[Rfam]
RNA sequence: GCGCCGCCUUGGGCGGCGUACGCGCCCUGGAACGGGCGGGAGCGCGGGGGUGGUGCCGUGUCGGCGCGGCACCACCCCCGUUCG
Numbered sequence: 001g002c003g004c005c006g007c008c009u010u011g012g013g014c015g016g017c018g019u020a021c022g023c024g025c026c027c028u029g030g031a032a033c034g035g036g037c038g039g040g041a042g043c044g045c046g047g048g049g050g051u052g053g054u055g056c057c058g059u060g061u062c063g064g065c066g067c068g069g070c071a072c073c074a075c076c077c078c079c080g081u082u083c084g
Stems, first nucleotide, its partner, number of pairs: 001019007021042001023040001025038001026036003044081013058067003